[Rfam]
RNA: let-7 microRNA precursor family
Organism: Eleutherodactylus coqui
RNA sequence: CCGAGCUGAGGUAGUUGUUUGUACAGUUUAAGGGUCUACGACAUCACCCGUGGUUGGAGAUAACUGUACAGGCUACUGCCUUGCCCGG
Numbered sequence: 001c002c003g004a005g006c007u008g009a010g011g012u013a014g015u016u017g018u019u020u021g022u023a024c025a026g027u028u029u030a031a032g033g034g035u036c037u038a039c040g041a042c043a044u045c046a047c048c049c050g051u052g053g054u055u056g057g058a059g060a061u062a063a064c065u066g067u068a069c070a071g072g073c074u075a076c077u078g079c080c081u082u083g084c085c086c087g088g
Stems, first nucleotide, its partner, number of pairs: 001088003005084002008082008017073011032049004